[Rfam]
RNA sequence: CCGCCCCUCAUUGGGGAGUAGCCGCCCCGCCGCAUCGCCUGCCUGCGCGGCCAUCGAGCAUCGAUCGCCGCACACGAUCCCACCCUGGGAUCCGUUUUGGCAGCGCGCAUGAUUCGCGGGGGCGUCCGUCAACAUACUUGGUUCCAUGCGGACCAUGGCGGGCGCAGCCUUGGGGCCUGGCGAGACCGAUGAUCCUCGCGCUGCCGCUUUCAGGGCC
Numbered sequence: 001c002c003g004c005c006c007c008u009c010a011u012u013g014g015g016g017a018g019u020a021g022c023c024g025c026c027c028c029g030c031c032g033c034a035u036c037g038c039c040u041g042c043c044u045g046c047g048c049g050g051c052c053a054u055c056g057a058g059c060a061u062c063g064a065u066c067g068c069c070g071c072a073c074a075c076g077a078u079c080c081c082a083c084c085c086u087g088g089g090a091u092c093c094g095u096u097u098u099g100g101c102a103g104c105g106c107g108c109a110u111g112a113u114u115c116g117c118g119g120g121g122g123c124g125u126c127c128g129u130c131a132a133c134a135u136a137c138u139u140g141g142u143u144c145c146a147u148g149c150g151g152a153c154c155a156u157g158g159c160g161g162g163c164g165c166a167g168c169c170u171u172g173g174g175g176c177c178u179g180g181c182g183a184g185a186c187c188g189a190u191g192a193u194c195c196u197c198g199c200g201c202u203g204c205c206g207c208u209u210u211c212a213g214g215g216c217c
Stems, first nucleotide, its partner, number of pairs: 026120005122165010139155005
RNA: Manganese Mn2+ riboswitch aptamer (yybP-ykoY)